[Rfam]
RNA sequence: GCAGUCUGCUGGUCUGUCGCUCACCUUCGGGUGUGAGGAAAGUCCGGGCAACACAGAGCACCAUACUUCUUAACGGGAAGCUGUCCGUGAGGGUAGAGUAACGUAACAGAGAAUAACCGCCGGACUCGUCCGGUAAGGGUGAAAAGGUGAGGUAAGAGCUCACCGGGUCCCGUAGCGAUACGGGAUGCCGUACGUCUUAUGGGUUGUAAGGUCAUGUAUACCGGCGCAUGUAGGAUGGCUCGUCCGAUGCCGGGGGGUAGACCGCUAAAGCUUACCGGCGACGGUAAGACAAGAUAAAUGGCAGGCACCUCUUUCCAAAGAGGUACAGGACCCGGCUUAUAGGCAGACUGCUUUU
Numbered sequence: 001g002c003a004g005u006c007u008g009c010u011g012g013u014c015u016g017u018c019g020c021u022c023a024c025c026u027u028c029g030g031g032u033g034u035g036a037g038g039a040a041a042g043u044c045c046g047g048g049c050a051a052c053a054c055a056g057a058g059c060a061c062c063a064u065a066c067u068u069c070u071u072a073a074c075g076g077g078a079a080g081c082u083g084u085c086c087g088u089g090a091g092g093g094u095a096g097a098g099u100a101a102c103g104u105a106a107c108a109g110a111g112a113a114u115a116a117c118c119g120c121c122g123g124a125c126u127c128g129u130c131c132g133g134u135a136a137g138g139g140u141g142a143a144a145a146g147g148u149g150a151g152g153u154a155a156g157a158g159c160u161c162a163c164c165g166g167g168u169c170c171c172g173u174a175g176c177g178a179u180a181c182g183g184g185a186u187g188c189c190g191u192a193c194g195u196c197u198u199a200u201g202g203g204u205u206g207u208a209a210g211g212u213c214a215u216g217u218a219u220a221c222c223g224g225c226g227c228a229u230g231u232a233g234g235a236u237g238g239c240u241c242g243u244c245c246g247a248u249g250c251c252g253g254g255g256g257g258u259a260g261a262c263c264g265c266u267a268a269a270g271c272u273u274a275c276c277g278g279c280g281a282c283g284g285u286a287a288g289a290c291a292a293g294a295u296a297a298a299u300g301g302c303a304g305g306c307a308c309c310u311c312u313u314u315c316c317a318a319a320g321a322g323g324u325a326c327a328g329g330a331c332c333c334g335g336c337u338u339a340u341a342g343g344c345a346g347a348c349u350g351c352u353u354u355u
Base pairs, nucleotide, nucleotide: 001351002350003349004348005347006346007345008344009343010342011340012306013305014304015303016302017301018300020035022033023032024031025030040338041337042336044335045334046333047332048331049206050205051204052203056241057240058239059238061202062201063200064199065198066080067079068078069077070076081096083094084093085092086091097197098196101195102194103193104192105191117138118137119134120133121132122131123130124129146164147163148162149161150160151159166188167186168185169184170183171182172181173180174179210263211262212261213260221253222252223251224250225249233245234244235243236242271288272287273286274285275284276283277282